Plastid-psbA-1 3UTR RNA: a 119-nucleotide RNA from Menyanthes trifoliata. The base pairs follow the family's consensus structure, which was predicted with LocARNA. Plastid psbA-1 is a non-coding RNA (ncRNA) present in plastids. It was identified in inverted repeat sequences in the 3 prime untranslate region (3UTR) of photosystem II quinone-binding protein (psbA).

RNA sequence: UCGAAGCUCCAUCUACAAAUGGAUAAGACUUAGGUCUUAAUGUAUACGAGUUUUUGAACUAAAAAAGGAGCAAUAGCCUCUUUCUUGUUCUAUCAAGAGGGUGGUAUUGCUCCUUUUUU
Numbered sequence: 001u002c003g004a005a006g007c008u009c010c011a012u013c014u015a016c017a018a019a020u021g022g023a024u025a026a027g028a029c030u031u032a033g034g035u036c037u038u039a040a041u042g043u044a045u046a047c048g049a050g051u052u053u054u055u056g057a058a059c060u061a062a063a064a065a066a067g068g069a070g071c072a073a074u075a076g077c078c079u080c081u082u083u084c085u086u087g088u089u090c091u092a093u094c095a096a097g098a099g100g101g102u103g104g105u106a107u108u109g110c111u112c113c114u115u116u117u118u119u
Base pairs, nucleotide, nucleotide: 008023009022010021011020012019064116065115066114067113068112069111070110071109072108073107074106075105079101080100082099083098084097085096086095